[Rfam]
RNA sequence: GUCGCGCGAACGGCAACGGUUAUCGGCGGGUACCCUCGCCCUCUGGCCUACCAUCACAACGGGAUCAGUUGUGGUGGCUGUUUGCGGGUUCCGUCACAUGCGCUUGCGCAUUUCGGGCUCGACACUGCGCUACCUCGCAGGUCACCGAUACACGGGUUCGUGAUCGUUGCUCCGGUGCGGUAGACCGGACCUUAUCCGGCCAGUG
Numbered sequence: 001g002u003c004g005c006g007c008g009a010a011c012g013g014c015a016a017c018g019g020u021u022a023u024c025g026g027c028g029g030g031u032a033c034c035c036u037c038g039c040c041c042u043c044u045g046g047c048c049u050a051c052c053a054u055c056a057c058a059a060c061g062g063g064a065u066c067a068g069u070u071g072u073g074g075u076g077g078c079u080g081u082u083u084g085c086g087g088g089u090u091c092c093g094u095c096a097c098a099u100g101c102g103c104u105u106g107c108g109c110a111u112u113u114c115g116g117g118c119u120c121g122a123c124a125c126u127g128c129g130c131u132a133c134c135u136c137g138c139a140g141g142u143c144a145c146c147g148a149u150a151c152a153c154g155g156g157u158u159c160g161u162g163a164u165c166g167u168u169g170c171u172c173c174g175g176u177g178c179g180g181u182a183g184a185c186c187g188g189a190c191c192u193u194a195u196c197c198g199g200c201c202a203g204u205g
Base pairs, nucleotide, nucleotide: 018048019047020046021045022044025040026039027038028037029036030035051077052076053075055073056072057071058070059069060068086120087119088118089117091116092115093114098111099110100109101108102107138174140172141171143169144168146166147165148164149163151162152161153160154159185199186198187197188196189195
RNA: ilvB-OMG RNA